[Rfam]
Nucleotides: 093
Base pairs, nucleotide, nucleotide: 002048003047004046005045006044007043008042021035022034023033024032025031
Number, partner (000 for none) and nucleotide at each position: 001000c002048u003047u004046u005045c006044c007043g008042a009000g010000g011000a012000g013000c014000g015000u016000u017000g018000c019000a020000g021035u022034u023033c024032a025031c026000g027000c028000g029000c030000a031025g032024u033023g034022a035021a036000c037000g038000a039000g040000g041000c042008u043007c044006g045005g046004a047003a048002a049000g050000c051000u052000g053000a054000c055000c056000g057000a058000u059000a060000g061000g062000g063000u064000u065000a066000g067000u068000u069000c070000a071000a072000g073000c074000a075000c076000c077000a078000a079000c080000g081000a082000c083000g084000c085000u086000c087000a088000c089000c090000c091000a092000c093000u